Description: The record is a 37-nucleotide RNA from Roseospira visakhapatnamensis, which matches "CRISPR RNA direct repeat element" in Rfam. A search with the family's covariance model found it, with a score of 42 bits. The base pairs follow the family's consensus structure, which was predicted with WAR. Rfam links the family to the GO term defense response. NCBI's taxonomy places the organism under Bacteria, Pseudomonadati, Pseudomonadota, Rhodospirillales, Roseospira.
RNA sequence: GGUUCCCGGGGCGGAAACGCCCCGGCCUCAUUGAAGC
Dot-bracket structure: .....(((((((......)))))))............